The family of this 75-nucleotide sequence from Polypterus senegalus is "mir-190 microRNA precursor family". The literature on the family includes a 2006 paper in Nucleic Acids Res by Kloosterman et al., "Cloning and expression of new microRNAs from zebrafish". The family's consensus secondary structure was predicted with RNAalifold. Rfam 15.1 lists 1,667 matches to the family in 854 species. It scores 72 bits against the family's covariance model.
RNA sequence: GAUGAUGUGUGAUAUGUUUGAUAUUAGGUUGUUUUAUUUAAAUCAACUAAAUAUCAGACAUAUUCCUACAACAUC
Number, nucleotide and partner (000 for none) at each position: 001g000002a000003u000004g000005a000006u070007g069008u068009g067010u000011g064012a063013u062014a061015u060016g059017u058018u057019u056020g055021a054022u053023a052024u051025u050026a000027g048028g047029u046030u045031g044032u000033u000034u000035u000036a000037u000038u000039u000040a000041a000042a000043u000044c031045a030046a029047c028048u027049a000050a025051a024052u023053a022054u021055c020056a019057g018058a017059c016060a015061u014062a013063u012064u011065c000066c000067u009068a008069c007070a006071a000072c000073a000074u000075c000